Rfam assigns this 76-nucleotide RNA sequence from Cnephaeus nilssonii to the family "mir-9229 microRNA precursor family". Rfam links the family to the GO terms miRNA-mediated post-transcriptional gene silencing and RISC complex.

RNA sequence: GAGACACUCCUAUGGAACAGGACUUGCUUCAAUAGGACUAUGGUGCUCACUGAGUCUGCCCCUUGAGUGUGUCACU
Numbered sequence: 001g002a003g004a005c006a007c008u009c010c011u012a013u014g015g016a017a018c019a020g021g022a023c024u025u026g027c028u029u030c031a032a033u034a035g036g037a038c039u040a041u042g043g044u045g046c047u048c049a050c051u052g053a054g055u056c057u058g059c060c061c062c063u064u065g066a067g068u069g070u071g072u073c074a075c076u
Base pairs, nucleotide, nucleotide: 001075003073004072005071006070007069009067011065012064014062015061018058019057021056022055023054029053030052031051033049035047036046037044038043
Dot-bracket structure: (.(((((.(.((.((..((.(((.....(((.(.((((....)).)).).))))))))..)).)).).))))).).